RNA sequence: CAGGUUCCGGUUCACGUCCAAUACAGCAGGUCAGGCUGGGCGACCCGGCGGCC
Numbered sequence: 001c002a003g004g005u006u007c008c009g010g011u012u013c014a015c016g017u018c019c020a021a022u023a024c025a026g027c028a029g030g031u032c033a034g035g036c037u038g039g040g041c042g043a044c045c046c047g048g049c050g051g052c053c
Stems, first nucleotide, its partner, number of pairs: 003053003007048004015042006
Background:
The family of this 53-nucleotide RNA is "L31-Actinobacteria ribosomal protein leader". By type it is a cis-regulatory leader. Pairs were carried over by alignment from the consensus structure, which is taken from published work. It is one of the family's seed sequences.